[Rfam]
RNA sequence: UUGAAGGCGGGAGGAGAGUCCACUGAAGUGGCGCCGAAGGAGCAAAUCGGAAUUAUCCGGUGAAUCUCUCAGGCAAAAGGAGGUCCGCCA
Dot-bracket structure: .....((((((........((((....)))).(((((..(((...((((........))))....))))).))).........)))))).
RNA: Glycine riboswitch aptamer